[Rfam]
RNA: tRNA
RNA sequence: GGGCUGUUGGUGAUAGUGGUAGCAUUCUGAACUUGCACUUCAGAGGCGGGAAUUCGAUUUUCCCACAGUCCA
Numbered sequence: 001g002g003g004c005u006g007u008u009g010g011u012g013a014u015a016g017u018g019g020u021a022g023c024a025u026u027c028u029g030a031a032c033u034u035g036c037a038c039u040u041c042a043g044a045g046g047c048g049g050g051a052a053u054u055c056g057a058u059u060u061u062c063c064c065a066c067a068g069u070c071c072a
Base pairs, nucleotide, nucleotide: 001071002070003069004068005067006066007065010025011024012023027043028042029041030040031039048064049063050062051061052060